[Rfam]
Annotation: The family of this 54-nucleotide RNA sequence from Clostridium cylindrosporum is "Na+ riboswitch aptamer (DUF1646)".
RNA sequence: GGUUGGGCUUUUUUAAGCUUUCAAGUUUUAUUAGAACUUUCAGGGGGGAAGGUU
Numbered sequence: 001g002g003u004u005g006g007g008c009u010u011u012u013u014u015a016a017g018c019u020u021u022c023a024a025g026u027u028u029u030a031u032u033a034g035a036a037c038u039u040u041c042a043g044g045g046g047g048g049a050a051g052g053u054u
Stems, first nucleotide, its partner, number of pairs: 003024003006019005035054007
The match comes from Rfam's covariance-model search (44 bits). Pairs were carried over by alignment from the consensus structure, which is taken from published work. Lineage of the source: Bacteria > Clostridia > Clostridiaceae > Clostridium > Clostridium cylindrosporum.